Rfam assigns this 212-nucleotide sequence from Letharia lupina to the family "Group I catalytic intron". The literature on the family includes a 1990 paper in Annu Rev Biochem by Cech, "Self-splicing of group I introns". The match comes from Rfam's covariance-model search (73 bits). Group I catalytic introns are large self-splicing ribozymes. They catalyse their own excision from mRNA, tRNA and rRNA precursors in a wide range of organisms. The core secondary structure consists of 9 paired regions (P1-P9). The family has 12 seed sequences and 5,602 matches in Rfam 15.1.
[Rfam]
RNA sequence: CUGCUAUAGUACCCGAGUGAUAAAAAGAUGUCACUUAAUCUUGCUAUAUGCUGGAAACUCUUAUAUACCUAAAUAUAUCUAGACAAUCAGCAGGAAACCUAAUAAUUUACUAUUUAAUAGGGUCUUCAGAGACUAUACGCAAGAUAUAAUAAAAAUUAUUUAUGGUAAUUUUUAUUAUUAAGAUAUAGUCCAAUCAUUGUAGUGAUAUGAUG
Numbered sequence: 001c002u003g004c005u006a007u008a009g010u011a012c013c014c015g016a017g018u019g020a021u022a023a024a025a026a027g028a029u030g031u032c033a034c035u036u037a038a039u040c041u042u043g044c045u046a047u048a049u050g051c052u053g054g055a056a057a058c059u060c061u062u063a064u065a066u067a068c069c070u071a072a073a074u075a076u077a078u079c080u081a082g083a084c085a086a087u088c089a090g091c092a093g094g095a096a097a098c099c100u101a102a103u104a105a106u107u108u109a110c111u112a113u114u115u116a117a118u119a120g121g122g123u124c125u126u127c128a129g130a131g132a133c134u135a136u137a138c139g140c141a142a143g144a145u146a147u148a149a150u151a152a153a154a155a156u157u158a159u160u161u162a163u164g165g166u167a168a169u170u171u172u173u174a175u176u177a178u179u180a181a182g183a184u185a186u187a188g189u190c191c192a193a194u195c196a197u198u199g200u201a202g203u204g205a206u207a208u209g210a211u212g
Stems, first nucleotide, its partner, number of pairs: 010022002038145005044139001049092006059083003093125002099120002104114003129191001131190005147177009197210005